[Rfam]
RNA sequence: GUGCAAAUGAUGUAAACUUUUUACCACUGAGUAAAGUGAUGUUUCCAAAGGAACCACUGAUGCAC
Numbered sequence: 001g002u003g004c005a006a007a008u009g010a011u012g013u014a015a016a017c018u019u020u021u022u023a024c025c026a027c028u029g030a031g032u033a034a035a036g037u038g039a040u041g042u043u044u045c046c047a048a049a050g051g052a053a054c055c056a057c058u059g060a061u062g063c064a065c
Base pairs, nucleotide, nucleotide: 001065002064003063004062005061

The family of this 65-nucleotide RNA from Lophotis ruficrista is "Small nucleolar RNA SNORD42".
The family's RNA type in Rfam is C/D-box small nucleolar RNA.
The base pairs follow the family's consensus structure, which was predicted with PFOLD.
NCBI's taxonomy places the organism under Eukaryota, Eumetazoa, Bilateria, Dipnotetrapodomorpha, Lophotis.
Rfam's curators write: snoRNA U42 is found in intron 3 of the ribosomal protein L23a (RPL23a) gene in humans and is also present in mice.
On this family, see Galardi et al., Mol Cell Biol 2002: "Purified box C/D snoRNPs are able to reproduce site-specific 2'-O-methylation of target RNA in vitro".